Rfam assigns this 84-nucleotide RNA from Cavia porcellus to the family "mir-500 microRNA precursor family".
The literature on the family includes a 2010 paper in BMC Genomics by Linsen et al., "Small RNA expression and strain specificity in the rat".
Pairs were carried over by alignment from the consensus structure, which was predicted with RNAalifold.

RNA sequence: GCUCCUCCUCUCUAAUCCUUUGUCCCUGAGUGAGAAUGCUUUCAGAAUGCAGUGCUCCCAGGCAAGGGUUCUGAGAGGGCGAGC
Numbered sequence: 001g002c003u004c005c006u007c008c009u010c011u012c013u014a015a016u017c018c019u020u021u022g023u024c025c026c027u028g029a030g031u032g033a034g035a036a037u038g039c040u041u042u043c044a045g046a047a048u049g050c051a052g053u054g055c056u057c058c059c060a061g062g063c064a065a066g067g068g069u070u071c072u073g074a075g076a077g078g079g080c081g082a083g084c
Base pairs, nucleotide, nucleotide: 014070015069016068017067018066019065020064025062026061027060028059030057032055037051038050039049